[Rfam]
RNA sequence: GCGUCGGUAUAGCUCAACGGUUACUUCUCGCAUUACAGAUCAAUCCGAUGACCGCGGAAACACGGGUUCGACCAUGGGCGCUGUCCGACGUUUUC
Numbered sequence: 001g002c003g004u005c006g007g008u009a010u011a012g013c014u015c016a017a018c019g020g021u022u023a024c025u026u027c028u029c030g031c032a033u034u035a036c037a038g039a040u041c042a043a044u045c046c047g048a049u050g051a052c053c054g055c056g057g058a059a060a061c062a063c064g065g066g067u068u069c070g071a072c073c074a075u076g077g078g079c080g081c082u083g084u085c086c087g088a089c090g091u092u093u094u095c
Stems, first nucleotide, its partner, number of pairs: 002090006012079004017075001019073002026071002
RNA: Vault RNA
Organism: Stegastes partitus